[Rfam]
RNA: Molybdenum/Tungsten riboswitch aptamer (Moco RNA motif)
Organism: Geoanaerobacter pelophilus
RNA sequence: GGGGUCUUUAUCCUCCGAGCCAUGCGCAGCCUAAAAGGGAUCACCCUCACGGAGCCAGGCCAACGGGUUUCGCUGGAAACGGCGGAGCCUCCCUCUUGGAAAGGAGCGCCGGCACCGAUGCC
Number, nucleotide and partner (000 for none) at each position: 001g000002g000003g116004g115005u000006c000007u000008u000009u000010a000011u108012c000013c106014u105015c104016c103017g000018a000019g060020c059021c058022a000023u000024g055025c054026g000027c000028a000029g000030c052031c051032u000033a000034a000035a000036a047037g046038g045039g000040a000041u000042c000043a000044c000045c038046c037047u036048c000049a000050c000051g031052g030053a000054g025055c024056c000057a000058g021059g020060c019061c000062a000063a000064c000065g090066g089067g088068u087069u086070u085071c084072g083073c082074u081075g080076g000077a000078a000079a000080c075081g074082g073083c072084g071085g070086a069087g068088c067089c066090u065091c099092c098093c000094u000095c000096u000097u000098g092099g091100a000101a000102a000103g016104g015105a014106g013107c000108g011109c000110c000111g000112g000113c000114a000115c004116c003117g000118a000119u000120g000121c000122c000